Overview:
Plant signal recognition particle RNA: a 303-nucleotide RNA from Nicotiana attenuata. The family's consensus secondary structure is taken from published work.
RNA sequence: GCCGAGCUCAGUAACGUGGGCUUGUAACUCAAGUGGGGGCAUCAAUGUGGUGGAAUGUUGGGCUCUUCCAGAAGGUUGGUCUUGGUGGUCUCUAUGCUGGCCUGCCCUAUCCAAGCACAGAGCUGGGUCACGUGGCCCAAACGAAGGUAUGGGUCACUUGACUCCUAAAGUGGGGUGGACUGCGUGAGGCUGGUUUCACAGAGCAACGGAUAGCUCCCGCUUUGUGCGGUGGAAGGAUAAUGGGCCGGUGCUUUCCAAGUCCAGCAAUGCCUGAUGGGUUGCUCCAAUUAAACCUCCAUUUUU
Numbered sequence: 001g002c003c004g005a006g007c008u009c010a011g012u013a014a015c016g017u018g019g020g021c022u023u024g025u026a027a028c029u030c031a032a033g034u035g036g037g038g039g040c041a042u043c044a045a046u047g048u049g050g051u052g053g054a055a056u057g058u059u060g061g062g063c064u065c066u067u068c069c070a071g072a073a074g075g076u077u078g079g080u081c082u083u084g085g086u087g088g089u090c091u092c093u094a095u096g097c098u099g100g101c102c103u104g105c106c107c108u109a110u111c112c113a114a115g116c117a118c119a120g121a122g123c124u125g126g127g128u129c130a131c132g133u134g135g136c137c138c139a140a141a142c143g144a145a146g147g148u149a150u151g152g153g154u155c156a157c158u159u160g161a162c163u164c165c166u167a168a169a170g171u172g173g174g175g176u177g178g179a180c181u182g183c184g185u186g187a188g189g190c191u192g193g194u195u196u197c198a199c200a201g202a203g204c205a206a207c208g209g210a211u212a213g214c215u216c217c218c219g220c221u222u223u224g225u226g227c228g229g230u231g232g233a234a235g236g237a238u239a240a241u242g243g244g245c246c247g248g249u250g251c252u253u254u255c256c257a258a259g260u261c262c263a264g265c266a267a268u269g270c271c272u273g274a275u276g277g278g279u280u281g282c283u284c285c286a287a288u289u290a291a292a293c294c295u296c297c298a299u300u301u302u303u
Base pairs, nucleotide, nucleotide: 001040002039003038004023005022006021007020008019009018010017028037029036030035044302045301047299048298049297050296052294053293056290057289058287059286060285061283062282063281066278068277069276070275073272074271075270076269078262079261081259082258083257084256085255087253088252091250097248098247099246100245101244102243103242104241106236107235110233111232112231113230115227116226117225118224119223120222121221122220123219125164126163127162128161129160130159132157133156134155135154136153137152138151139150141148142147165170172217173216174215175214176213181210183208184207185206190201191200192199